[Rfam]
RNA: Guanidine-II riboswitch aptamer (mini-ykkC)
RNA sequence: AGCAGGGGACGACCCCAAUCGCGCUCAAUUUCUACAAUCGGGACGACCCGA
Numbered sequence: 001a002g003c004a005g006g007g008g009a010c011g012a013c014c015c016c017a018a019u020c021g022c023g024c025u026c027a028a029u030u031u032c033u034a035c036a037a038u039c040g041g042g043a044c045g046a047c048c049c050g051a
Base pairs, nucleotide, nucleotide: 002022003021005016006015007014008013038051039050040049041048042047